[Rfam]
Nucleotides: 072
Base pairs, nucleotide, nucleotide: 015068025067026066027065028064029063032060033059034058035057036056037054038053039052
Number, partner (000 for none) and nucleotide at each position: 001000u002000g003000u004000g005000g006000u007000g008000u009000g010000a011000g012000a013000a014000a015068a016000u017000u018000u019000u020000g021000u022000a023000g024000a025067a026066a027065a028064g029063c030000a031000c032060u033059u034058g035057g036056g037054g038053u039052c040000g041000a042000a043000a044000c045000a046000c047000g048000g049000a050000a051000a052039g053038a054037c055000u056036c057035c058034c059033a060032g061000g062000u063029g064028u065027u066026u067025u068015u069000c070000u071000c072000a
Shown here is a 72-nucleotide sequence from Aphanothece sacrum, a member of the family "Cyano-1 RNA".
The base pairs follow the family's consensus structure, which is taken from published work.
It is annotated as a small RNA.
The family has 265 seed sequences and 283 matches in Rfam 15.1.